[Rfam]
The family of this 50-nucleotide RNA sequence is "eL15-Euryarchaeota ribosomal protein leader". The family's consensus secondary structure is taken from published work. Rfam's curators put it in the seed alignment. The family's RNA type in Rfam is cis-regulatory leader. For this family Rfam cites "Discovery of 20 novel ribosomal leader candidates in bacteria and archaea" (Eckert and Weinberg, BMC Microbiol, 2020).
RNA sequence: ACGGGAUCCGUCCCGGAGAGGAAUGUGGUCCUUCUGGACUGAACCUAGGU
Numbered sequence: 001a002c003g004g005g006a007u008c009c010g011u012c013c014c015g016g017a018g019a020g021g022a023a024u025g026u027g028g029u030c031c032u033u034c035u036g037g038a039c040u041g042a043a044c045c046u047a048g049g050u
Stems, first nucleotide, its partner, number of pairs: 002015004019046003027040005